[Rfam]
RNA sequence: UGGCCAGGGAUGAAAAUAAUGAUCUGGUUACUUGAUCUGAUUACGUGAUGGAUUAAAGGAUUUUCUGAGGCCA
Numbered sequence: 001u002g003g004c005c006a007g008g009g010a011u012g013a014a015a016a017u018a019a020u021g022a023u024c025u026g027g028u029u030a031c032u033u034g035a036u037c038u039g040a041u042u043a044c045g046u047g048a049u050g051g052a053u054u055a056a057a058g059g060a061u062u063u064u065c066u067g068a069g070g071c072c073a
Stems, first nucleotide, its partner, number of pairs: 002072004
RNA: Small nucleolar RNA SNORD93
Organism: Crypturellus soui